[Rfam]
RNA sequence: AUCUAUGGUGACAUAGACAUAUAGCAGAGGCACGCUAUAUGGCUUGGCAGAGCUUAAAAACUGUU
Numbered sequence: 001a002u003c004u005a006u007g008g009u010g011a012c013a014u015a016g017a018c019a020u021a022u023a024g025c026a027g028a029g030g031c032a033c034g035c036u037a038u039a040u041g042g043c044u045u046g047g048c049a050g051a052g053c054u055u056a057a058a059a060a061c062u063g064u065u
Stems, first nucleotide, its partner, number of pairs: 002017006018041007

This 65-nucleotide sequence from Streptococcus sp. sy004 belongs to the Rfam family "Bacilli-1 RNA". The base pairs follow the family's consensus structure, which is taken from published work. Taxonomically the source falls in Streptococcus (Bacteria, Bacillota, Bacilli, Lactobacillales). It is annotated as a small RNA.